[Rfam]
RNA sequence: GCCUAGCCCUGAUGGGAACGGCAUCCUUUUUCUGGCUUUUUUAGACAGAAAAAGAUAUAGUGUACAGCAGGAUUUAGC
Numbered sequence: 001g002c003c004u005a006g007c008c009c010u011g012a013u014g015g016g017a018a019c020g021g022c023a024u025c026c027u028u029u030u031u032c033u034g035g036c037u038u039u040u041u042u043a044g045a046c047a048g049a050a051a052a053a054g055a056u057a058u059a060g061u062g063u064a065c066a067g068c069a070g071g072a073u074u075u076a077g078c
Base pairs, nucleotide, nucleotide: 009070010069011068013066014065018061019060023056024055025054029051030050031049032048033047034046036044
Overview:
The record is a 78-nucleotide sequence from Flavobacterium sp. KMS, which matches "Flavo-1 RNA" in Rfam. The family's consensus secondary structure is taken from published work. It is annotated as a small RNA. Rfam 15.1 lists 7,497 matches to the family in 411 species. Lineage of the source: Bacteria > Bacteroidota > Flavobacteriales > Flavobacteriaceae > Flavobacterium.